[Rfam]
RNA sequence: CAGCGAGUUAGGCCGGGGUGCUAGCGGUACCCUCCACGAAAACCCGCUAUACGUCGGGCCGAAGCUCCGGAGAGGCGUACGGAACUGCUCGUCGGCUCGGUCUGCAGCGUGGACACCCCGUCCCUCAGGGUCGCCGGUGGGGGAGCCCCGAUCGGAGGGUUGGGGUAAACCCCCUUCGCCUGCCGAACCCGGUCAGGAACGGAAGUUCGCAGCCGUAGAUAGGACGGUUGGCGCUUGAGGGGUCGCGGGGUCGAGCUCGCGGCCGGGUGUCGGACGAGGAGGGAAGGCGUCCACCCGGGGCGCGCUCGCUG
Numbered sequence: 001c002a003g004c005g006a007g008u009u010a011g012g013c014c015g016g017g018g019u020g021c022u023a024g025c026g027g028u029a030c031c032c033u034c035c036a037c038g039a040a041a042a043c044c045c046g047c048u049a050u051a052c053g054u055c056g057g058g059c060c061g062a063a064g065c066u067c068c069g070g071a072g073a074g075g076c077g078u079a080c081g082g083a084a085c086u087g088c089u090c091g092u093c094g095g096c097u098c099g100g101u102c103u104g105c106a107g108c109g110u111g112g113a114c115a116c117c118c119c120g121u122c123c124c125u126c127a128g129g130g131u132c133g134c135c136g137g138u139g140g141g142g143g144a145g146c147c148c149c150g151a152u153c154g155g156a157g158g159g160u161u162g163g164g165g166u167a168a169a170c171c172c173c174c175u176u177c178g179c180c181u182g183c184c185g186a187a188c189c190c191g192g193u194c195a196g197g198a199a200c201g202g203a204a205g206u207u208c209g210c211a212g213c214c215g216u217a218g219a220u221a222g223g224a225c226g227g228u229u230g231g232c233g234c235u236u237g238a239g240g241g242g243u244c245g246c247g248g249g250g251u252c253g254a255g256c257u258c259g260c261g262g263c264c265g266g267g268u269g270u271c272g273g274a275c276g277a278g279g280a281g282g283g284a285a286g287g288c289g290u291c292c293a294c295c296c297g298g299g300g301c302g303c304g305c306u307c308g309c310u311g
Stems, first nucleotide, its partner, number of pairs: 001311008011060004015033007037056003064301007074291004078286001085281002088278006095268008106257003110253001115251007122241008130232004134227003137176001139174005145166009179223004184218001190215004198207003